[Rfam]
RNA sequence: CUCUUAUCGAGAGUGGUGGAGGGAUAUGGCCCUGUGAAGCCCGGCAACCGCUGACAUAGUCAGAAAGGUGCUACAUCCAUCAGGUGAGAUCACCUGAAAGAUAAGAC
Numbered sequence: 001c002u003c004u005u006a007u008c009g010a011g012a013g014u015g016g017u018g019g020a021g022g023g024a025u026a027u028g029g030c031c032c033u034g035u036g037a038a039g040c041c042c043g044g045c046a047a048c049c050g051c052u053g054a055c056a057u058a059g060u061c062a063g064a065a066a067g068g069u070g071c072u073a074c075a076u077c078c079a080u081c082a083g084g085u086g087a088g089a090u091c092a093c094c095u096g097a098a099a100g101a102u103a104a105g106a107c
Stems, first nucleotide, its partner, number of pairs: 002106007013042001015041003021032003026080004043072004048068002051063003076099001081096006

A member of the RNA family "SAM riboswitch aptamer (S box leader)" from Jeotgalibacillus alimentarius, 107 nucleotides long. Pairs were carried over by alignment from the consensus structure, which is taken from published work.